[Rfam]
The family of this 153-nucleotide RNA from Aureobasidium melanogenum is "Small nucleolar RNA snR80". Pairs were carried over by alignment from the consensus structure, which was predicted with WAR. Taxonomically the source falls in Aureobasidium (Eukaryota, Fungi, saccharomyceta, Saccotheciaceae). Rfam links the family to the GO terms RNA processing and nucleolus. The match comes from Rfam's covariance-model search (51 bits). The family is grouped with related families in Rfam's "SNORA28 clan". A reference for the family is Schattner et al. (2004), "Genome-wide searching for pseudouridylation guide snoRNAs: analysis of the Saccharomyces cerevisiae genome", Nucleic Acids Res.

RNA sequence: UCCACUUUGCCACACUCUGGACUCUGCCCACUUCUCCUGUGGCCUUGUCCAAUUUUUAAGUGCAAAGAAGAUUGACUUUUCUGUCCUACUACUCACCGACAUGUCUCCUCCUUCGGGAGCGUGGAUAUAUCGGUCCAUGUUUAAGGUCAACAU
Numbered sequence: 001u002c003c004a005c006u007u008u009g010c011c012a013c014a015c016u017c018u019g020g021a022c023u024c025u026g027c028c029c030a031c032u033u034c035u036c037c038u039g040u041g042g043c044c045u046u047g048u049c050c051a052a053u054u055u056u057u058a059a060g061u062g063c064a065a066a067g068a069a070g071a072u073u074g075a076c077u078u079u080u081c082u083g084u085c086c087u088a089c090u091a092c093u094c095a096c097c098g099a100c101a102u103g104u105c106u107c108c109u110c111c112u113u114c115g116g117g118a119g120c121g122u123g124g125a126u127a128u129a130u131c132g133g134u135c136c137a138u139g140u141u142u143a144a145g146g147u148c149a150a151c152a153u
Stems, first nucleotide, its partner, number of pairs: 007065003018051005026043003083148001085146002096133004101128003106125003